[Rfam]
RNA sequence: GUUAAAGACGCACUAAGUUCCACACAAGUGGAAACGGGGGAUCCAGCUUUUUGGGGUGAAUCCGCCUUUUGCUGGUAGGGCUGUCUCUUUAGCCCGAAUCCGCCAGCUAACUUCGUAAGCGCUUCCAAGAGAGAAA
Numbered sequence: 001g002u003u004a005a006a007g008a009c010g011c012a013c014u015a016a017g018u019u020c021c022a023c024a025c026a027a028g029u030g031g032a033a034a035c036g037g038g039g040g041a042u043c044c045a046g047c048u049u050u051u052u053g054g055g056g057u058g059a060a061u062c063c064g065c066c067u068u069u070u071g072c073u074g075g076u077a078g079g080g081c082u083g084u085c086u087c088u089u090u091a092g093c094c095c096g097a098a099u100c101c102g103c104c105a106g107c108u109a110a111c112u113u114c115g116u117a118a119g120c121g122c123u124u125c126c127a128a129g130a131g132a133g134a135a136a
Stems, first nucleotide, its partner, number of pairs: 011121001013119002018033005034116006044053002054101003062075003078095004

c-di-AMP riboswitch aptamer (ydaO/yuaA leader): a 136-nucleotide RNA from Desulfosporosinus cupriresistens. The source organism's lineage runs through Bacteria, Bacillati, Bacillota, Desulfitobacteriaceae and Desulfosporosinus.